Rfam assigns this 127-nucleotide RNA from Clarias magur to the family "Small nucleolar RNA ACA64".
Pairs were carried over by alignment from the consensus structure, which was predicted with WAR.
The organism belongs to Clarias, within Eukaryota.
Rfam classes the family as an H/ACA-box small nucleolar RNA.
A search with the family's covariance model found it, with a score of 74 bits.
The literature on the family includes a 2006 paper in RNA by Schattner et al., "A computational screen for mammalian pseudouridylation guide H/ACA RNAs".

RNA sequence: ACAAUCUGAAAAUUACCUUCAGCACGUGUAUUGCAGUGGGUGAGAUAAUUGUGCCUACACGAAGGUGGUGCAUUAAGCUUAUUGUCAGCUCCAUUCGCUGUGCAAUGAAACCCAUGUGCCUACAGGC
Numbered sequence: 001a002c003a004a005u006c007u008g009a010a011a012a013u014u015a016c017c018u019u020c021a022g023c024a025c026g027u028g029u030a031u032u033g034c035a036g037u038g039g040g041u042g043a044g045a046u047a048a049u050u051g052u053g054c055c056u057a058c059a060c061g062a063a064g065g066u067g068g069u070g071c072a073u074u075a076a077g078c079u080u081a082u083u084g085u086c087a088g089c090u091c092c093a094u095u096c097g098c099u100g101u102g103c104a105a106u107g108a109a110a111c112c113c114a115u116g117u118g119c120c121u122a123c124a125g126g127c
Stems, first nucleotide, its partner, number of pairs: 006051001008049001010046001013043004022034003067120001069118005079108005087099003
Rfam 15.1 lists 9,537 matches to the family in 620 species.